The record is a 201-nucleotide RNA sequence from Paenibacillus xerothermodurans, which matches "c-di-AMP riboswitch aptamer (ydaO/yuaA leader)" in Rfam. Rfam describes the family as follows. This family represents a conserved RNA structure found upstream of the ydaO and yuaA genes in Bacillus subtilis and related genes in other bacteria. Lineage of the source: Bacteria > Bacillota > Bacilli > Caryophanales > Paenibacillus. Its family is annotated with regulation of gene expression and cyclic-di-AMP binding in the Gene Ontology.

[Rfam]
RNA sequence: UUUUUCCUUUCGCUGAGUUUCCAUAUGGGAAACGGGGGAUCCGCAACGUAGCUUGGGCAUUCUUUUCAAUCAGCCUAAAGUUACAUUUUCAGGGGUGAAUCUUGAGCAUGGGCCGGCUUUGAACGAAGGCCAUUCUCAGGUAGGGCGACUCUCAAGUCCGAAUCCGUCAGCUAACCUCGUAAGCGUCUAGAGAGAGGUAAC
Dot-bracket structure: ..........((((...(((........)))((((((....(.................................................)(((.....((((((............................))))))..((((.........))))...))).........)))))).))))................